[Rfam]
RNA sequence: GUACUACACUAGGGGAGCUAGAACGGCUAGCUGAGAAAAAGACCUUUAUCUUUAACCCUUUAAACCUGAUCUGGAUAAAACCAGCGUAGGAAAGUGUGUCUAUUUUCAA
Numbered sequence: 001g002u003a004c005u006a007c008a009c010u011a012g013g014g015g016a017g018c019u020a021g022a023a024c025g026g027c028u029a030g031c032u033g034a035g036a037a038a039a040a041g042a043c044c045u046u047u048a049u050c051u052u053u054a055a056c057c058c059u060u061u062a063a064a065c066c067u068g069a070u071c072u073g074g075a076u077a078a079a080a081c082c083a084g085c086g087u088a089g090g091a092a093a094g095u096g097u098g099u100c101u102a103u104u105u106u107c108a109a
Base pairs, nucleotide, nucleotide: 006097007096008095009094010093011059012058013057014056017031018030019029020028021027038053039052040051041050042049065090066089067088068087071084072083073082074081
RNA: TPP riboswitch aptamer (THI element)
Organism: Desulfonispora thiosulfatigenes